[Rfam]
RNA: Ribosomal protein L19 leader
RNA sequence: ACGGUGUUCCGCUGCAACAGAAGAUGACUGCAAGAGCAUCUG
Numbered sequence: 001a002c003g004g005u006g007u008u009c010c011g012c013u014g015c016a017a018c019a020g021a022a023g024a025u026g027a028c029u030g031c032a033a034g035a036g037c038a039u040c041u042g
Base pairs, nucleotide, nucleotide: 003040004039005038006037007036008035009034013032014031015030016029